[Rfam]
RNA: mir-1302 microRNA precursor family
RNA sequence: UUUUUAGUAUAAGUAUAUCCCAUGCAGUGUAUGGGAUAUACUUAUGCUAAAA
Numbered sequence: 001u002u003u004u005u006a007g008u009a010u011a012a013g014u015a016u017a018u019c020c021c022a023u024g025c026a027g028u029g030u031a032u033g034g035g036a037u038a039u040a041c042u043u044a045u046g047c048u049a050a051a052a
Stems, first nucleotide, its partner, number of pairs: 006048007014040003018036004